Description:
The family of this 464-nucleotide RNA from Neisseria dentiae is "Bacterial RNase P class A". Rfam classes the family as a ribozyme.

RNA sequence: CAGGCCGGGCAGACAGCCGCCGCGCAGCGCGUAAGGCCUGCGGGGAGGAAAGUCCGGGCUACACAGGGCAGGAUGCCGGCUAACGGCCGGGCGUGGCAACACGACGGAAAGUGGAACAGAGAGCAGAACCGCCGAUGGUUCCGAGAUACUGCCGCCAGCCUUUUGCGUUAUGCAAGGCGGCGUGCCGCAGACAGUACAGAUAGUACGGCAAGGCACGCCAACACCGCAGAGCGCAAAAGGCUGGCGGUAGGGAGCACAGGCAAGGGUGAAAAGGUGCGGUAAGAGCGCACCGUGCACUUGGUAACAAGGCGCAGCAGGCCAAACCCCAUCCGUAGCAAGACCAAACAGAACGCACAGACGCGGCCCGCCGAGCGUUCGGGUAGGUUGCUGGAGCACAUCAGUAAUGGUGUGCCUAGAGGAAUGGCUGUCCGCGACAGAACCCGGCUUACCGCCCGACCUGUAUG
Numbered sequence: 001c002a003g004g005c006c007g008g009g010c011a012g013a014c015a016g017c018c019g020c021c022g023c024g025c026a027g028c029g030c031g032u033a034a035g036g037c038c039u040g041c042g043g044g045g046a047g048g049a050a051a052g053u054c055c056g057g058g059c060u061a062c063a064c065a066g067g068g069c070a071g072g073a074u075g076c077c078g079g080c081u082a083a084c085g086g087c088c089g090g091g092c093g094u095g096g097c098a099a100c101a102c103g104a105c106g107g108a109a110a111g112u113g114g115a116a117c118a119g120a121g122a123g124c125a126g127a128a129c130c131g132c133c134g135a136u137g138g139u140u141c142c143g144a145g146a147u148a149c150u151g152c153c154g155c156c157a158g159c160c161u162u163u164u165g166c167g168u169u170a171u172g173c174a175a176g177g178c179g180g181c182g183u184g185c186c187g188c189a190g191a192c193a194g195u196a197c198a199g200a201u202a203g204u205a206c207g208g209c210a211a212g213g214c215a216c217g218c219c220a221a222c223a224c225c226g227c228a229g230a231g232c233g234c235a236a237a238a239g240g241c242u243g244g245c246g247g248u249a250g251g252g253a254g255c256a257c258a259g260g261c262a263a264g265g266g267u268g269a270a271a272a273g274g275u276g277c278g279g280u281a282a283g284a285g286c287g288c289a290c291c292g293u294g295c296a297c298u299u300g301g302u303a304a305c306a307a308g309g310c311g312c313a314g315c316a317g318g319c320c321a322a323a324c325c326c327c328a329u330c331c332g333u334a335g336c337a338a339g340a341c342c343a344a345a346c347a348g349a350a351c352g353c354a355c356a357g358a359c360g361c362g363g364c365c366c367g368c369c370g371a372g373c374g375u376u377c378g379g380g381u382a383g384g385u386u387g388c389u390g391g392a393g394c395a396c397a398u399c400a401g402u403a404a405u406g407g408u409g410u411g412c413c414u415a416g417a418g419g420a421a422u423g424g425c426u427g428u429c430c431g432c433g434a435c436a437g438a439a440c441c442c443g444g445c446u447u448a449c450c451g452c453c454c455g456a457c458c459u460g461u462a463u464g
Stems, first nucleotide, its partner, number of pairs: 001460004006455005012429007020045002023042005050447003054444005059335004066366004071331005076090005091105001092103004106326002111324002113320002129265002131261003136256002139253004273291006292315001293313003297309001298307003339386004348377006360368002393412008
Source information: The source organism's lineage runs through Bacteria, Pseudomonadota, Betaproteobacteria, Neisseriaceae and Neisseria.